mir-208 microRNA precursor family: a 79-nucleotide sequence from Pelodiscus sinensis.
The organism belongs to Pelodiscus, within Eukaryota.
RNA sequence: UCCAACGGGGAAGCUUUUGGCUCUGGUUAUAUUUCCACUCGCAGCGUAUAAGACGAGCGAAAAGCUUGUCGGUUGGCGG
Numbered sequence: 001u002c003c004a005a006c007g008g009g010g011a012a013g014c015u016u017u018u019g020g021c022u023c024u025g026g027u028u029a030u031a032u033u034u035c036c037a038c039u040c041g042c043a044g045c046g047u048a049u050a051a052g053a054c055g056a057g058c059g060a061a062a063a064g065c066u067u068g069u070c071g072g073u074u075g076g077c078g079g
Stems, first nucleotide, its partner, number of pairs: 003075004008070002011067008020058001023055001027051006